[Rfam]
RNA sequence: UCUGUUAUGCAACUGAAAGUAGCUCAUGAGCAGCGCGUCACCAGCCAUGGUGGGAUGCGAAAGCGCUCUGAAAAUGUACUCCUUGGUUUUCGGGUAUUCUUUCACCAUGAGGUGAACAAUGGAUUUCGCCAGUAGCUGGGGGAUGAGGCA
Numbered sequence: 001u002c003u004g005u006u007a008u009g010c011a012a013c014u015g016a017a018a019g020u021a022g023c024u025c026a027u028g029a030g031c032a033g034c035g036c037g038u039c040a041c042c043a044g045c046c047a048u049g050g051u052g053g054g055a056u057g058c059g060a061a062a063g064c065g066c067u068c069u070g071a072a073a074a075u076g077u078a079c080u081c082c083u084u085g086g087u088u089u090u091c092g093g094g095u096a097u098u099c100u101u102u103c104a105c106c107a108u109g110a111g112g113u114g115a116a117c118a119a120u121g122g123a124u125u126u127c128g129c130c131a132g133u134a135g136c137u138g139g140g141g142g143a144u145g146a147g148g149c150a
Stems, first nucleotide, its partner, number of pairs: 002019002005016003028068004033058003038053006081094003085090001095121004105112002125143003129139002
A member of the RNA family "Group II catalytic intron D1-D4-7" from Izhakiella capsodis, 150 nucleotides long.
Gene Ontology term of the family: Group II intron splicing.
The family has 244 seed sequences and 1,296 matches in Rfam 15.1.
For this family Rfam cites "Group II introns: structure and catalytic versatility of large natural ribozymes" (Lehmann and Schmidt, Crit Rev Biochem Mol Biol, 2003).
The base pairs follow the family's consensus structure.